[Rfam]
RNA sequence: CCUGGCAGUGAUGCCACCCUUGCCCUCACUGAGAACUCUGUUCUGUAAUGAGCCUCUCCUAACAGCUGAGCCAGG
Numbered sequence: 001c002c003u004g005g006c007a008g009u010g011a012u013g014c015c016a017c018c019c020u021u022g023c024c025c026u027c028a029c030u031g032a033g034a035a036c037u038c039u040g041u042u043c044u045g046u047a048a049u050g051a052g053c054c055u056c057u058c059c060u061a062a063c064a065g066c067u068g069a070g071c072c073a074g075g
Base pairs, nucleotide, nucleotide: 001075002074003073004072005071006070